[Rfam]
RNA sequence: AGGGAAGCAAAAUGAUGGAUAUUAUUGGUUGGAGCCCUAAAGAGGCAAAUGUUUGUGUCUGUAUGUGAAUGAUUGUAUGUGCGUGCGCACUUGUGCCUGGAUGUGUGACUGGGUAUGAAUGGUGAUAGAGGGACCUAGUUAUAUGCCUUUUUAUAGAGGGCUAUGAUAUUUAAACUGAUAAGAUCUGAUUGCUUC
Numbered sequence: 001a002g003g004g005a006a007g008c009a010a011a012a013u014g015a016u017g018g019a020u021a022u023u024a025u026u027g028g029u030u031g032g033a034g035c036c037c038u039a040a041a042g043a044g045g046c047a048a049a050u051g052u053u054u055g056u057g058u059c060u061g062u063a064u065g066u067g068a069a070u071g072a073u074u075g076u077a078u079g080u081g082c083g084u085g086c087g088c089a090c091u092u093g094u095g096c097c098u099g100g101a102u103g104u105g106u107g108a109c110u111g112g113g114u115a116u117g118a119a120u121g122g123u124g125a126u127a128g129a130g131g132g133a134c135c136u137a138g139u140u141a142u143a144u145g146c147c148u149u150u151u152u153a154u155a156g157a158g159g160g161c162u163a164u165g166a167u168a169u170u171u172a173a174a175c176u177g178a179u180a181a182g183a184u185c186u187g188a189u190u191g192c193u194u195c
Stems, first nucleotide, its partner, number of pairs: 004195007014185003026172003030168002037100003043094001045092001050087003054083003059079001103116004120137003126133001140165004145161004

About this RNA:
Rfam assigns this 195-nucleotide sequence from Phascolarctos cinereus to the family "Small nucleolar RNA ZL1". The source organism's lineage runs through Eukaryota, Opisthokonta, Teleostomi, Diprotodontia and Phascolarctos. About the family: Host gene TRRAP. Predicted target U2@U47. Only GU-rich region is homologous to other known snoRNAs. Conserved in vertebrates. The family's consensus secondary structure was predicted with RNAfold. For this family Rfam cites "Insights into snoRNA biogenesis and processing from PAR-CLIP of snoRNA core proteins and small RNA sequencing" (Kishore et al., Genome Biol, 2013).